Record summary
Rfam assigns this 73-nucleotide RNA from Planomonospora parontospora to the family "tRNA". By type it is a transfer RNA. Pairs were carried over by alignment from the consensus structure, which is taken from published work. Rfam links the family to the GO term triplet codon-amino acid adaptor activity. NCBI's taxonomy places the organism under Bacteria, Bacillati, Actinomycetota, Actinomycetes, Planomonospora parontospora.

RNA sequence: GGGGCUAUGGCGCAGCUGGUAGCGCGCCUCCAUGGCAUGGAGGAGGUCUGGGGUUCGAAUCCCCAUAGCUCCA
Numbered sequence: 001g002g003g004g005c006u007a008u009g010g011c012g013c014a015g016c017u018g019g020u021a022g023c024g025c026g027c028c029u030c031c032a033u034g035g036c037a038u039g040g041a042g043g044a045g046g047u048c049u050g051g052g053g054u055u056c057g058a059a060u061c062c063c064c065a066u067a068g069c070u071c072c073a
Stems, first nucleotide, its partner, number of pairs: 001072007010025004027043005049065005